The record is a 66-nucleotide sequence from Trypanosoma congolense, which matches "Trypanosomatid snoRNA TB9Cs1H1" in Rfam. The family's consensus secondary structure was predicted with WAR.
[Rfam]
RNA sequence: AGCACGGAGAAAGAAGCUAGUUUUAGGCCAUAGCCACUGCUGCUCUAGCGCCGACACUGUGCAAGA
Numbered sequence: 001a002g003c004a005c006g007g008a009g010a011a012a013g014a015a016g017c018u019a020g021u022u023u024u025a026g027g028c029c030a031u032a033g034c035c036a037c038u039g040c041u042g043c044u045c046u047a048g049c050g051c052c053g054a055c056a057c058u059g060u061g062c063a064a065g066a
Base pairs, nucleotide, nucleotide: 002062003061004060005059006058007057016049017048018047019046020045
Dot-bracket structure: .((((((........(((((........................))))).......))))))....
Description:
The family's RNA type in Rfam is H/ACA-box small nucleolar RNA. Taxonomically the source falls in Trypanosoma congolense (Eukaryota, Trypanosomatidae, Trypanosoma, Nannomonas). The family has 4 seed sequences and 68 matches in Rfam 15.1.